ALIL pseudoknot: a 117-nucleotide sequence from Thiomonas sp. X19.
RNA sequence: CGCGUUUUUCGCCCAGGCGGAGCUCGACCGCCGACUCAAGAGCUGAAGGCAUUUGUUGAUCAAUAUCGUGACCGCUUCGGGGUCGAGCCGAUCUGCAAGGUCUUGCAGAUCGCCCCA
Numbered sequence: 001c002g003c004g005u006u007u008u009u010c011g012c013c014c015a016g017g018c019g020g021a022g023c024u025c026g027a028c029c030g031c032c033g034a035c036u037c038a039a040g041a042g043c044u045g046a047a048g049g050c051a052u053u054u055g056u057u058g059a060u061c062a063a064u065a066u067c068g069u070g071a072c073c074g075c076u077u078c079g080g081g082g083u084c085g086a087g088c089c090g091a092u093c094u095g096c097a098a099g100g101u102c103u104u105g106c107a108g109a110u111c112g113c114c115c116c117a
Stems, first nucleotide, its partner, number of pairs: 016032005079116004089112002092109007
A reference for the family is Mazauric et al. (2008), "Apical loop-internal loop RNA pseudoknots: a new type of stimulator of -1 translational frameshifting in bacteria", J Biol Chem. It scores 113 bits against the family's covariance model. Lineage of the source: Bacteria > Pseudomonadati > Betaproteobacteria > Burkholderiales > Thiomonas.